This 69-nucleotide sequence from Scopus umbretta belongs to the Rfam family "Small nucleolar RNA SNORD58". Rfam's curators write: snoRNA U58 is found in introns 1, 3 and 6 of the ribosomal protein RPL17 gene in humans. It is annotated as a C/D-box small nucleolar RNA. For this family Rfam cites "Purified box C/D snoRNPs are able to reproduce site-specific 2'-O-methylation of target RNA in vitro" (Galardi et al., Mol Cell Biol, 2002). Its Rfam clan is "SNORD58 clan". Rfam 15.1 lists 2,484 matches to the family in 680 species. It scores 63 bits against the family's covariance model. Pairs were carried over by alignment from the consensus structure, which was predicted with PFOLD.
RNA sequence: CCGCCGUGAUGACCCUCUUAGGACACCUUUGGAUGUCACGGUGAAAAGAACGCGUAAUCUCUGAGCGGC
Numbered sequence: 001c002c003g004c005c006g007u008g009a010u011g012a013c014c015c016u017c018u019u020a021g022g023a024c025a026c027c028u029u030u031g032g033a034u035g036u037c038a039c040g041g042u043g044a045a046a047a048g049a050a051c052g053c054g055u056a057a058u059c060u061c062u063g064a065g066c067g068g069c
Base pairs, nucleotide, nucleotide: 001068002067003066004065